[Rfam]
RNA sequence: UUUAGGAAGAAAAAUAAAUCCCAUAUAUACUCCUAAUACGGUGGAGAGUUUCUACGAGUUACCGAUAAUAACUUGCUAUGGGCCAAAAUAGAAAUAUG
Numbered sequence: 001u002u003u004a005g006g007a008a009g010a011a012a013a014a015u016a017a018a019u020c021c022c023a024u025a026u027a028u029a030c031u032c033c034u035a036a037u038a039c040g041g042u043g044g045a046g047a048g049u050u051u052c053u054a055c056g057a058g059u060u061a062c063c064g065a066u067a068a069u070a071a072c073u074u075g076c077u078a079u080g081g082g083c084c085a086a087a088a089u090a091g092a093a094a095u096a097u098g
Base pairs, nucleotide, nucleotide: 020082021081022080023079024078025077030046031045032044033043056074057073058072059071060070061069
Notes: The record is a 98-nucleotide sequence from Cetobacterium sp. 2A, which matches "Purine riboswitch aptamer" in Rfam. The family's consensus secondary structure is taken from published work. The source organism's lineage runs through Bacteria, Fusobacteriota, Fusobacteriia, Fusobacteriaceae and Cetobacterium.